[Rfam]
RNA: mir-16 microRNA precursor family
RNA sequence: CUCUGACGGCAGCAGCACAGAAGUAAGGGCGGCGUGGUAUAGUAUUGCCACCCUUACUUCUGUGCUGCUGCUGGUGGGG
Number, nucleotide and partner (000 for none) at each position: 001c079002u078003c077004u000005g075006a000007c073008g000009g000010c000011a069012g068013c067014a066015g065016c064017a063018c062019a000020g059021a000022a058023g057024u056025a055026a054027g053028g052029g051030c000031g000032g000033c000034g000035u000036g000037g000038u000039a000040u000041a000042g000043u000044a000045u000046u000047g000048c000049c000050a000051c029052c028053c027054u026055u025056a024057c023058u022059u020060c000061u000062g018063u017064g016065c015066u014067g013068c012069u011070g000071c000072u000073g007074g000075u005076g000077g003078g002079g001